Small nucleolar RNA SNORA3/SNORA45 family: a 132-nucleotide sequence from Synaphobranchus kaupii.

RNA sequence: CCCGAGACUAGAGUCUCACCCUGACACGCUCCCGUUGUCUCGGUGUGCUAGAGCUCUCGCAGAGUGAAGACUGAUCUUAUUCACUGACUGGAUCCUCUUGUGGUUCAGUCGGCCACACGGUCAGUGACAUGU
Numbered sequence: 001c002c003c004g005a006g007a008c009u010a011g012a013g014u015c016u017c018a019c020c021c022u023g024a025c026a027c028g029c030u031c032c033c034g035u036u037g038u039c040u041c042g043g044u045g046u047g048c049u050a051g052a053g054c055u056c057u058c059g060c061a062g063a064g065u066g067a068a069g070a071c072u073g074a075u076c077u078u079a080u081u082c083a084c085u086g087a088c089u090g091g092a093u094c095c096u097c098u099u100g101u102g103g104u105u106c107a108g109u110c111g112g113c114c115a116c117a118c119g120g121u122c123a124g125u126g127a128c129a130u131g132u
Stems, first nucleotide, its partner, number of pairs: 003059004008053002012049002015047001017045004023039004071124006084112004089107006
Rfam 15.1 lists 2,080 matches to the family in 639 species. The family is grouped with related families in Rfam's "SNORA3 clan". For this family Rfam cites "RNomics: an experimental approach that identifies 201 candidates for novel, small, non-messenger RNAs in mouse" (Huttenhofer et al., EMBO J, 2001). The base pairs follow the family's consensus structure, which was predicted with RNAalifold. By type it is an H/ACA-box small nucleolar RNA.